[Rfam]
RNA sequence: GCCGACAUAGCUCAGUCGGUAGAGCAACUGAUUCGUAAUCAGUAGGUCCCCAGUUCAAAUCUGGGUGUCGGCU
Numbered sequence: 001g002c003c004g005a006c007a008u009a010g011c012u013c014a015g016u017c018g019g020u021a022g023a024g025c026a027a028c029u030g031a032u033u034c035g036u037a038a039u040c041a042g043u044a045g046g047u048c049c050c051c052a053g054u055u056c057a058a059a060u061c062u063g064g065g066u067g068u069c070g071g072c073u
Stems, first nucleotide, its partner, number of pairs: 001072007010025004027043005049065005
RNA: tRNA
Organism: Cystobacter ferrugineus